[Rfam]
RNA sequence: GUGCUGUGAUGUUUUUGUCAACCCUUCAUUCUGAAGAAAAAAAAGUAUGUGGUAACUUUUAAAACUGAGCACA
Numbered sequence: 001g002u003g004c005u006g007u008g009a010u011g012u013u014u015u016u017g018u019c020a021a022c023c024c025u026u027c028a029u030u031c032u033g034a035a036g037a038a039a040a041a042a043a044a045g046u047a048u049g050u051g052g053u054a055a056c057u058u059u060u061a062a063a064a065c066u067g068a069g070c071a072c073a
Stems, first nucleotide, its partner, number of pairs: 001072004
RNA: Small nucleolar RNA SNORD63
Organism: Vombatus ursinus